The family of this 109-nucleotide RNA from Glycine max is "MIR4387 microRNA precursor family".
It is one of the family's seed sequences.
[Rfam]
RNA sequence: AAGUGUCAUGUCAUCACACCUUGUCACGGACACCUCAUUGUCACGCCAUCACCUUCGAUGACAUGGCAAUGACGUGUUAGUAACAAGACGUGAUGACGUGACACUUCGU
Numbered sequence: 001a002a003g004u005g006u007c008a009u010g011u012c013a014u015c016a017c018a019c020c021u022u023g024u025c026a027c028g029g030a031c032a033c034c035u036c037a038u039u040g041u042c043a044c045g046c047c048a049u050c051a052c053c054u055u056c057g058a059u060g061a062c063a064u065g066g067c068a069a070u071g072a073c074g075u076g077u078u079a080g081u082a083a084c085a086a087g088a089c090g091u092g093a094u095g096a097c098g099u100g101a102c103a104c105u106u107c108g109u
Base pairs, nucleotide, nucleotide: 003104004103005102006101007100008099009098010097011096012095013094014093015092016091017090020087021086023084024083026081027080029078030077031076032075033074035072036071037070038069039068040067041066042065043064045062047060048059049058050057